[Rfam]
RNA: U11 spliceosomal RNA
RNA sequence: CUAAAGGGUUUGUUGGCUAAUGUGGCACGCUCAUCGUAUUGAUAAGUGUUACAUUGCUAUCAAGACAUAUGACUGACAAGAAUUUGUGAAUUAAUAGGGUUGACUCGUUAAGUCGACCCUAAA
Numbered sequence: 001c002u003a004a005a006g007g008g009u010u011u012g013u014u015g016g017c018u019a020a021u022g023u024g025g026c027a028c029g030c031u032c033a034u035c036g037u038a039u040u041g042a043u044a045a046g047u048g049u050u051a052c053a054u055u056g057c058u059a060u061c062a063a064g065a066c067a068u069a070u071g072a073c074u075g076a077c078a079a080g081a082a083u084u085u086g087u088g089a090a091u092u093a094a095u096a097g098g099g100u101u102g103a104c105u106c107g108u109u110a111a112g113u114c115g116a117c118c119c120u121a122a123a
Stems, first nucleotide, its partner, number of pairs: 008077003012073001014027002017024001028048004033043003049072003053068002095121011